[Rfam]
Description:
The record is an 81-nucleotide RNA from Astyanax mexicanus, which matches "Mammalian CPEB3 ribozyme" in Rfam. NCBI's taxonomy places the organism under Eukaryota, Metazoa, Ostariophysi, Characoidei, Astyanax. A search with the family's covariance model found it, with a score of 52 bits.
RNA sequence: ACAUGAUCAUGGGGGUCAAGGUAGAAGCAUUCACGUCACGACCCCUGUCAAGCGAUAGCAAUAUCACUUGCGAAUUCUACC
Dot-bracket structure: ...........[[[[[[..((((((((...........)]]]]]]...((((.((((....)))).))))....)))))))